[Rfam]
RNA sequence: UACUACCAAACCCUAUCUCCACCUCCACGUGGUGACCGCUGGGAACUCUUUUUUAACGAAAAAGCUGCAGACGGAGAAGG
Numbered sequence: 001u002a003c004u005a006c007c008a009a010a011c012c013c014u015a016u017c018u019c020c021a022c023c024u025c026c027a028c029g030u031g032g033u034g035a036c037c038g039c040u041g042g043g044a045a046c047u048c049u050u051u052u053u054u055a056a057c058g059a060a061a062a063a064g065c066u067g068c069a070g071a072c073g074g075a076g077a078a079g080g
Stems, first nucleotide, its partner, number of pairs: 012080003016076001018074002021033003045066001047064001049062005
Rfam assigns this 80-nucleotide sequence from Hermetia illucens to the family "drz-agam-1 ribozyme".
Gene Ontology term of the family: catalytic activity.